RNA: pemK RNA
RNA sequence: AUAAUGAUACUUCCAUAGUUUUAUGCCGUCUCAUCUUAAAAGGGGCGGUGGUGAGAAUCCAAUGU
Numbered sequence: 001a002u003a004a005u006g007a008u009a010c011u012u013c014c015a016u017a018g019u020u021u022u023a024u025g026c027c028g029u030c031u032c033a034u035c036u037u038a039a040a041a042g043g044g045g046c047g048g049u050g051g052u053g054a055g056a057a058u059c060c061a062a063u064g065u
Base pairs, nucleotide, nucleotide: 012062013025026048027047028046030044031043032042049061050060051059